Shown here is a 108-nucleotide RNA sequence from Rhododendron simsii, a member of the family "Small nucleolar RNA snoR100". For this family Rfam cites "Experimental RNomics: identification of 140 candidates for small non-messenger RNAs in the plant Arabidopsis thaliana" (Marker et al., Curr Biol, 2002).
[Rfam]
RNA sequence: GAAUGAAGAAAGCAUAGUAAUAUGGACAGAAAUUGAUUUGGGUCUCUAGGCCUGCCAUCUUUGAUGCCUUUCAGCUUUGAUUUCGGGGCAUAGUUUCACAACAAAAUG
Numbered sequence: 001g002a003a004u005g006a007a008g009a010a011a012g013c014a015u016a017g018u019a020a021u022a023u024g025g026a027c028a029g030a031a032a033u034u035g036a037u038u039u040g041g042g043u044c045u046c047u048a049g050g051c052c053u054g055c056c057a058u059c060u061u062u063g064a065u066g067c068c069u070u071u072c073a074g075c076u077u078u079g080a081u082u083u084c085g086g087g088g089c090a091u092a093g094u095u096u097c098a099c100a101a102c103a104a105a106a107u108g
Stems, first nucleotide, its partner, number of pairs: 013024003040091001042089003050081001052079001054075002